[Rfam]
This 143-nucleotide RNA from Desulfosporosinus sp. HMP52 belongs to the Rfam family "c-di-AMP riboswitch aptamer (ydaO/yuaA leader)".
RNA sequence: UAGAUAUUAUUGCUGAAUCUGAGUUUGAACACUCAGAACGGAGACUUUUAUUUCGGGGUGAAUCACGUUUGCUUUUUCGUGCAGGGCUUACACCUUUAGUCCGAACCCGUCAACUAACCUCGUAAGCCAAAAAAAACAGUUAC
Number, nucleotide and partner (000 for none) at each position: 001u000002a000003g000004a000005u000006a000007u000008u000009a000010u000011u000012g127013c126014u125015g000016a000017a000018u037019c036020u035021g034022a033023g032024u031025u000026u000027g000028a000029a000030c000031a024032c023033u022034c021035a020036g019037a018038a123039c122040g121041g120042a000043g118044a000045c000046u055047u000048u000049u000050a000051u000052u000053u000054c000055g046056g108057g107058g106059u000060g000061a000062a000063u000064c081065a080066c079067g078068u000069u000070u000071g000072c000073u000074u000075u000076u000077u000078c067079g066080u065081g064082c000083a000084g102085g101086g100087c099088u000089u000090a000091c000092a000093c000094c000095u000096u000097u000098a000099g087100u086101c085102c084103g000104a000105a000106c058107c057108c056109g000110u000111c000112a000113a000114c000115u000116a000117a000118c043119c000120u041121c040122g039123u038124a000125a014126g013127c012128c000129a000130a000131a000132a000133a000134a000135a000136a000137c000138a000139g000140u000141u000142a000143c000
For this family Rfam cites "New RNA motifs suggest an expanded scope for riboswitches in bacterial genetic control" (Barrick et al., Proc Natl Acad Sci U S A, 2004).